Plastid-psbA-3 3UTR RNA: a 52-nucleotide RNA from Lobelia cardinalis. It is annotated as a cis-regulatory element. Plastid psbA-3 is a non-coding RNA (ncRNA) present in plastids.

[Rfam]
RNA sequence: AAAAGGAGCAAUAACCCCCCUCUUCUUCUAGCAAGAGGGAGUUAUUGUUCCC
Numbered sequence: 001a002a003a004a005g006g007a008g009c010a011a012u013a014a015c016c017c018c019c020c021u022c023u024u025c026u027u028c029u030a031g032c033a034a035g036a037g038g039g040a041g042u043u044a045u046u047g048u049u050c051c052c
Stems, first nucleotide, its partner, number of pairs: 005051011020037005